RNA: mir-574 microRNA precursor family
Organism: Cnephaeus nilssonii
RNA sequence: AGGCCUGAAAAGAGAGUCAGGGUCUGAUCCACAGCCUCCCUCGCAGCUGUUGAUCCGCCGUUGCCUCUCUCUUUCUCUCCG
Numbered sequence: 001a002g003g004c005c006u007g008a009a010a011a012g013a014g015a016g017u018c019a020g021g022g023u024c025u026g027a028u029c030c031a032c033a034g035c036c037u038c039c040c041u042c043g044c045a046g047c048u049g050u051u052g053a054u055c056c057g058c059c060g061u062u063g064c065c066u067c068u069c070u071c072u073u074u075c076u077c078u079c080c081g
Base pairs, nucleotide, nucleotide: 008073009072011070012069013068014067015066016065018063019062020061022059024057026055027054028053029052032049033048034047035046
Dot-bracket structure: .......((.((((((.(((.(.(.((((..((((..........))))..)))).).).))).)))))).))........